[Rfam]
RNA sequence: AGUAAGACCAAACUCUGUGCAUAAUUUCCUUGUCUGUAGCCAUGUCUAUGGGCUCUUGAGUUGGCCACCUGGUGAGGGCCUGCU
Numbered sequence: 001a002g003u004a005a006g007a008c009c010a011a012a013c014u015c016u017g018u019g020c021a022u023a024a025u026u027u028c029c030u031u032g033u034c035u036g037u038a039g040c041c042a043u044g045u046c047u048a049u050g051g052g053c054u055c056u057u058g059a060g061u062u063g064g065c066c067a068c069c070u071g072g073u074g075a076g077g078g079c080c081u082g083c084u
Base pairs, nucleotide, nucleotide: 001084002083003082004081006079008077009076012073013072015071017069018067019066022064024062026060027059028058032053033052034051035050036049037048038047039046

The record is an 84-nucleotide sequence from Gorilla gorilla, which matches "mir-571 microRNA precursor family" in Rfam. Rfam links the family to the GO terms RISC complex and miRNA-mediated post-transcriptional gene silencing. The family's consensus secondary structure was predicted with RNAalifold. A search with the family's covariance model found it, with a score of 82 bits.